[Rfam]
RNA sequence: ACUCGUUCGCUCAGCUUUCGACAUGAUUCUGAACAAUACCAUCAAUAUGUUGUUGAGAUCAUUAGUUGAAAGCCGAACGAUUUGAGA
Numbered sequence: 001a002c003u004c005g006u007u008c009g010c011u012c013a014g015c016u017u018u019c020g021a022c023a024u025g026a027u028u029c030u031g032a033a034c035a036a037u038a039c040c041a042u043c044a045a046u047a048u049g050u051u052g053u054u055g056a057g058a059u060c061a062u063u064a065g066u067u068g069a070a071a072g073c074c075g076a077a078c079g080a081u082u083u084g085a086g087a
Stems, first nucleotide, its partner, number of pairs: 002086003007080003011076002014073009023062005029057002032054007
Dot-bracket structure: .(((..(((.((.((((((((((((((.((.(((((((.........))))))).)))))))..))))))))).)).)))...))).
RNA: mir-80 microRNA precursor family
Organism: Caenorhabditis sp. 36 PRJEB53466